[Rfam]
RNA sequence: AUGGAAGAUGCAUGGCUUGAGCAUCUACAUGGUUCUUGAGAGUUAAAGCUGCAUGAGGAUGGAUAGUGGAAACUGAGCUCCUCAAGAAGCAUUCAGCUUCAUGGUGCCUUUCCUGACCUCCCUGGUGGUCGGCUGAGGUACGCACAUACCGGCAAGUCACAAUACGGCAAUGGCGGAUUCCAUUAGGAGUCCU
Dot-bracket structure: ..................................................((........................))..........(.((..............(.(..............................).)...)).)..........................(((((......)))))..

Background: Rfam assigns this 193-nucleotide RNA sequence from Miscanthus lutarioriparius to the family "Early nodulin 40". The literature on the family includes a 2007 paper in Nucleic Acids Res by Gultyaev and Roussis, "Identification of conserved secondary structures and expansion segments in enod40 RNAs reveals new enod40 homologues in plants". Rfam links the family to the GO term nodulation. Rfam 15.1 lists 341 matches to the family in 193 species. The source organism's lineage runs through Eukaryota, Streptophytina, Embryophyta, Poales and Miscanthus.